[Rfam]
RNA sequence: UGGUCGAUGGUGAUGUGACCACUGUGCAGACUGAGUUUUGGGAACCAGGUGAUGGAGUGUGUUCUGAGACGUGGCAAGGCGG
Numbered sequence: 001u002g003g004u005c006g007a008u009g010g011u012g013a014u015g016u017g018a019c020c021a022c023u024g025u026g027c028a029g030a031c032u033g034a035g036u037u038u039u040g041g042g043a044a045c046c047a048g049g050u051g052a053u054g055g056a057g058u059g060u061g062u063u064c065u066g067a068g069a070c071g072u073g074g075c076a077a078g079g080c081g082g
Stems, first nucleotide, its partner, number of pairs: 003080003038048004

A member of the RNA family "small Cajal body-specific RNA 18" from Sus scrofa, 82 nucleotides long. By type it is a small Cajal body RNA. About the family: scaRNAs are a specific class of small nuclear RNAs which localise to the Cajal bodies and guide the modification of RNA polymerase II transcribed spliceosomal RNAs U1, U2, U4, U5 and U12. The literature on the family includes a 2002 paper in EMBO J by Darzacq et al., "Cajal body-specific small nuclear RNAs: a novel class of 2'-O-methylation and pseudouridylation guide RNAs". The organism belongs to Sus, within Eukaryota. The match comes from Rfam's covariance-model search (73 bits). The family's consensus secondary structure was predicted with PFOLD. Rfam links the family to the GO terms nucleolus, RNA processing and Cajal body.